[Rfam]
RNA sequence: GGCCCCUUAGCUCAGCUGGAUAGAGCACCUGCCUUCUAAGCAGGUUGUCGUAGGUUCGAUUCCUACAGGGGUCG
Numbered sequence: 001g002g003c004c005c006c007u008u009a010g011c012u013c014a015g016c017u018g019g020a021u022a023g024a025g026c027a028c029c030u031g032c033c034u035u036c037u038a039a040g041c042a043g044g045u046u047g048u049c050g051u052a053g054g055u056u057c058g059a060u061u062c063c064u065a066c067a068g069g070g071g072u073c074g
Base pairs, nucleotide, nucleotide: 001073002072003071004070005069006068007067010026011025012024013023028044029043030042031041032040050066051065052064053063054062
tRNA: a 74-nucleotide RNA sequence from Rhizobium sp. PDO1-076. It is annotated as a transfer RNA. The family's consensus secondary structure is taken from published work.